Background: A member of the RNA family "Alpha operon ribosome binding site" from Idiomarina xiamenensis, 101 nucleotides long. NCBI's taxonomy places the organism under Bacteria, Pseudomonadota, Gammaproteobacteria, Alteromonadales, Idiomarina xiamenensis. Rfam links the family to the GO term ribosome binding. It is annotated as a cis-regulatory element. From the family's description: The bacterial alpha operon ribosome binding site is surrounded by this complex pseudoknotted structure. Translation of the mRNA produces 4 ribosomal protein products, one of which (S4) acts as a translational repressor by binding to the nested pseudoknot region.

RNA sequence: UCUGGUAACCGGUUGAGUAUCCUAACGGGCUUUUCGACUGGUGCCCUUUAACUAUAGGAGACGUGUUAGUGGCCCGUAUCGCUGGCAUUAACGUUCCUGAC
Numbered sequence: 001u002c003u004g005g006u007a008a009c010c011g012g013u014u015g016a017g018u019a020u021c022c023u024a025a026c027g028g029g030c031u032u033u034u035c036g037a038c039u040g041g042u043g044c045c046c047u048u049u050a051a052c053u054a055u056a057g058g059a060g061a062c063g064u065g066u067u068a069g070u071g072g073c074c075c076g077u078a079u080c081g082c083u084g085g086c087a088u089u090a091a092c093g094u095u096c097c098u099g100a101c
Base pairs, nucleotide, nucleotide: 004046005045008042009041010040011039012038013037021085022084026076027075028074029073034100035099036098